[Rfam]
The record is a 118-nucleotide sequence from Ruminobacter amylophilus, which matches "Ribosomal S15 leader" in Rfam.
The source organism's lineage runs through Bacteria, Pseudomonadati, Pseudomonadota, Gammaproteobacteria and Ruminobacter.
For this family Rfam cites "Pseudoknot and translational control in the expression of the S15 ribosomal protein" (Benard et al., Biochimie, 1996).
Clan: Ribosomal Protein S15 Leader clan.
It is annotated as a cis-regulatory leader.
RNA sequence: UACCCAGGCUGAGUUAGUGAUCGGCUUUGGGCGAAUUUGAAAAUCUAUUGGAGAUUAUAUAAUGUCACUAAGUACUGAAGCUAAGAAGCAGAUUGUUGCUGAAUAUGCACGUUCAAAG
Numbered sequence: 001u002a003c004c005c006a007g008g009c010u011g012a013g014u015u016a017g018u019g020a021u022c023g024g025c026u027u028u029g030g031g032c033g034a035a036u037u038u039g040a041a042a043a044u045c046u047a048u049u050g051g052a053g054a055u056u057a058u059a060u061a062a063u064g065u066c067a068c069u070a071a072g073u074a075c076u077g078a079a080g081c082u083a084a085g086a087a088g089c090a091g092a093u094u095g096u097u098g099c100u101g102a103a104u105a106u107g108c109a110c111g112u113u114c115a116a117a118g
Stems, first nucleotide, its partner, number of pairs: 007026006048071004053066001